[Rfam]
RNA sequence: UGGACUAAGUGGAGAAGUGGUCUUGUCACUUUGAAUUAAAGUGAGAUUCAACUUCUCCAACUUAUUUCA
Numbered sequence: 001u002g003g004a005c006u007a008a009g010u011g012g013a014g015a016a017g018u019g020g021u022c023u024u025g026u027c028a029c030u031u032u033g034a035a036u037u038a039a040a041g042u043g044a045g046a047u048u049c050a051a052c053u054u055c056u057c058c059a060a061c062u063u064a065u066u067u068c069a
Base pairs, nucleotide, nucleotide: 007063008062009061010059011058012057013056014055016054017053018051023046024045026044027043028042029041030040031039
Dot-bracket structure: ......((((((((.(((....((.((((((.......))))))))....).))))))).)))......